[Rfam]
RNA sequence: UGACGUCGGUUCCUCCUCCUGUCUGAAGUCCUUCAGGAGGAUUUUACGACGUCACAGAGAAACGGGUCUUUUUCACCCAGAGAGCUUCAGCUGCACCCCAGCGCAAUCAAAGCUUCCUGGUUUUGCAAGACCCGACAAAU
Dot-bracket structure: ((((((((.....(((((.((............)).))))).....))))))))..........((((((......((((.(((((...(.(((........))).)...))))).))))......))))))........